Rfam assigns this 92-nucleotide RNA from Macaca mulatta to the family "Small nucleolar RNA SNORD116". The source organism's lineage runs through Eukaryota, Gnathostomata, Mammalia, Catarrhini and Macaca.

[Rfam]
RNA sequence: GGAUCAAUGAUGACCUUUAUACAUGCAUUCCUUUGAAAGCUGAACAAAAUGAGUGAAAACUCUAUACCGUCAUCCUCAUUGAACUGAGGUCU
Numbered sequence: 001g002g003a004u005c006a007a008u009g010a011u012g013a014c015c016u017u018u019a020u021a022c023a024u025g026c027a028u029u030c031c032u033u034u035g036a037a038a039g040c041u042g043a044a045c046a047a048a049a050u051g052a053g054u055g056a057a058a059a060c061u062c063u064a065u066a067c068c069g070u071c072a073u074c075c076u077c078a079u080u081g082a083a084c085u086g087a088g089g090u091c092u
Stems, first nucleotide, its partner, number of pairs: 001092005026055005032047002